[Rfam]
RNA sequence: GGUAUGGGACAGCGAUCUCCCCGUGAAGCGACUUGCCCAAGUAUCGCGUCCUUUCUCCAGGAGGACGCACGCAUG
Numbered sequence: 001g002g003u004a005u006g007g008g009a010c011a012g013c014g015a016u017c018u019c020c021c022c023g024u025g026a027a028g029c030g031a032c033u034u035g036c037c038c039a040a041g042u043a044u045c046g047c048g049u050c051c052u053u054u055c056u057c058c059a060g061g062a063g064g065a066c067g068c069a070c071g072c073a074u075g
Stems, first nucleotide, its partner, number of pairs: 005023004046068006